[Rfam]
RNA: SAM (S-adenosyl methionine) riboswitch aptamer
RNA sequence: GGUCAUGAGAGCCAGCACUAAGCCCCAGCUAGCUGGCCGGCAACCCUCACCGCGGUGGGGUGCCCUGGGUGAAGACCUGGCGUGAAAAAUAUCCUCACGCAAGCGCGGGCU
Numbered sequence: 001g002g003u004c005a006u007g008a009g010a011g012c013c014a015g016c017a018c019u020a021a022g023c024c025c026c027a028g029c030u031a032g033c034u035g036g037c038c039g040g041c042a043a044c045c046c047u048c049a050c051c052g053c054g055g056u057g058g059g060g061u062g063c064c065c066u067g068g069g070u071g072a073a074g075a076c077c078u079g080g081c082g083u084g085a086a087a088a089a090u091a092u093c094c095u096c097a098c099g100c101a102a103g104c105g106c107g108g109g110c111u
Stems, first nucleotide, its partner, number of pairs: 001077004009038001011037006021030002039064003044060003048054001080100006088092001